[Rfam]
RNA: Plastid-psbN 5UTR RNA
Organism: Nicotiana attenuata
RNA sequence: UGCGACCCCCAUCAAAGGAGUAGUUCCCCACCCAGGCGCUACUUUGCCAGUAUGGCCGAAUUC
Numbered sequence: 001u002g003c004g005a006c007c008c009c010c011a012u013c014a015a016a017g018g019a020g021u022a023g024u025u026c027c028c029c030a031c032c033c034a035g036g037c038g039c040u041a042c043u044u045u046g047c048c049a050g051u052a053u054g055g056c057c058g059a060a061u062u063c
Stems, first nucleotide, its partner, number of pairs: 017045008026036002